[Rfam]
RNA sequence: AGCCCUAAUAUGAAAUAGAGUAGAUUAGAAGGAUCAUCUGACCCUACUAAACUACUCUACUUCGAGUUUGUACCC
Numbered sequence: 001a002g003c004c005c006u007a008a009u010a011u012g013a014a015a016u017a018g019a020g021u022a023g024a025u026u027a028g029a030a031g032g033a034u035c036a037u038c039u040g041a042c043c044c045u046a047c048u049a050a051a052c053u054a055c056u057c058u059a060c061u062u063c064g065a066g067u068u069u070g071u072a073c074c075c
Base pairs, nucleotide, nucleotide: 002073005070007068008067009066011064012063013062014061016059017058018057019056020055021054022053023052025050026049027048028047030045032043034041035040
Source information: The family of this 75-nucleotide sequence from Haemonchus placei is "mir-5928 microRNA precursor family". The family's consensus secondary structure was predicted with RNAalifold. A search with the family's covariance model found it, with a score of 61 bits. Its family is annotated with RISC complex and miRNA-mediated post-transcriptional gene silencing in the Gene Ontology.